[Rfam]
RNA sequence: CCUGCACUCGCAGGACGGGAUGUGACGCCGUUCGGCGUUGAACCACCAA
Numbered sequence: 001c002c003u004g005c006a007c008u009c010g011c012a013g014g015a016c017g018g019g020a021u022g023u024g025a026c027g028c029c030g031u032u033c034g035g036c037g038u039u040g041a042a043c044c045a046c047c048a049a
Stems, first nucleotide, its partner, number of pairs: 001014005017044002024039005
RNA: eL15-Euryarchaeota ribosomal protein leader
Organism: Halapricum sp. CBA1109